Background:
Glycine riboswitch aptamer: a 74-nucleotide RNA from Senegalia massiliensis. The family is grouped with related families in Rfam's "Glycine riboswitch clan". For this family Rfam cites "A glycine-dependent riboswitch that uses cooperative binding to control gene expression" (Mandal et al., Science, 2004).
RNA sequence: CUCUGGAGAGAUCGCUUUAGCGACGCCGAAGGAGAAAUACAUUAAUAUGUAAAGCUCUCAGGCUAGAUACAGAG
Numbered sequence: 001c002u003c004u005g006g007a008g009a010g011a012u013c014g015c016u017u018u019a020g021c022g023a024c025g026c027c028g029a030a031g032g033a034g035a036a037a038u039a040c041a042u043u044a045a046u047a048u049g050u051a052a053a054g055c056u057c058u059c060a061g062g063c064u065a066g067a068u069a070c071a072g073a074g
Stems, first nucleotide, its partner, number of pairs: 001074005012023004025063003028059002032057003039050002

Lineage of the source: Bacteria > Bacillati > Bacillota > Clostridiaceae > Senegalia.